[Rfam]
RNA sequence: UCGUUGAACAAUCCCACCGGUGAGUGUAUCCAUUUGGUCUCCUGCGUGGACCUGAGAGUGCCAAGA
Dot-bracket structure: ((...........((((((..(((((....))))).......)).))))......)).........
The family of this 66-nucleotide RNA from Trypanosoma cruzi is "Trypanosomatid snoRNA TB11Cs3H1".
It is annotated as an H/ACA-box small nucleolar RNA.
Gene Ontology terms of the family: RNA processing and nucleolus.
The base pairs follow the family's consensus structure, which was predicted with WAR.
A search with the family's covariance model found it, with a score of 74 bits.